[Rfam]
RNA sequence: CCUGCAACUGCAGGACGGAAUGUGGCGUGGUCGAUUGUGAAUCGAUUCCACGCUGAACCACUCA
Numbered sequence: 001c002c003u004g005c006a007a008c009u010g011c012a013g014g015a016c017g018g019a020a021u022g023u024g025g026c027g028u029g030g031u032c033g034a035u036u037g038u039g040a041a042u043c044g045a046u047u048c049c050a051c052g053c054u055g056a057a058c059c060a061c062u063c064a
Stems, first nucleotide, its partner, number of pairs: 001014005017059002024054007
Description: A member of the RNA family "eL15-Euryarchaeota ribosomal protein leader" from Haladaptatus paucihalophilus, 64 nucleotides long. A reference for the family is Eckert and Weinberg (2020), "Discovery of 20 novel ribosomal leader candidates in bacteria and archaea", BMC Microbiol. The organism belongs to Haladaptatus paucihalophilus, within Archaea.